The family of this 72-nucleotide RNA from Clunio marinus is "mir-3 microRNA precursor family".

RNA sequence: UUGAUGCGACAAACCAUGUUCAGGUUGAUGUUUAAUUAAAGUUCCAUCACUGGGCAAUGUUUGUCGCAUGAA
Numbered sequence: 001u002u003g004a005u006g007c008g009a010c011a012a013a014c015c016a017u018g019u020u021c022a023g024g025u026u027g028a029u030g031u032u033u034a035a036u037u038a039a040a041g042u043u044c045c046a047u048c049a050c051u052g053g054g055c056a057a058u059g060u061u062u063g064u065c066g067c068a069u070g071a072a
Stems, first nucleotide, its partner, number of pairs: 005068010017056003021052003
The family has 28 seed sequences and 52 matches in Rfam 15.1.